[Rfam]
RNA sequence: UGGCUGUAGCUAAAUCAAACGUUGAGAAGUCAACUGGUUGGUUGUUGUGAGAUUUUCGAGAAAUGUCUCCUCUCAACUAAUCUGCUUACCGAACUUCUCACAAUU
Numbered sequence: 001u002g003g004c005u006g007u008a009g010c011u012a013a014a015u016c017a018a019a020c021g022u023u024g025a026g027a028a029g030u031c032a033a034c035u036g037g038u039u040g041g042u043u044g045u046u047g048u049g050a051g052a053u054u055u056u057c058g059a060g061a062a063a064u065g066u067c068u069c070c071u072c073u074c075a076a077c078u079a080a081u082c083u084g085c086u087u088a089c090c091g092a093a094c095u096u097c098u099c100a101c102a103a104u105u
Base pairs, nucleotide, nucleotide: 024099025098026097027096028095029094030093036086037085038084040082041081042080043079044077045076046075047074
A member of the RNA family "Small nucleolar RNA snoR109" from Trema orientale, 105 nucleotides long. Taxonomically the source falls in Trema (Eukaryota, Euphyllophyta, Gunneridae, Rosales). Rfam links the family to the GO terms nucleolus and RNA processing. The literature on the family includes a 2002 paper in Curr Biol by Marker et al., "Experimental RNomics: identification of 140 candidates for small non-messenger RNAs in the plant Arabidopsis thaliana". By type it is an H/ACA-box small nucleolar RNA. A search with the family's covariance model found it, with a score of 76 bits.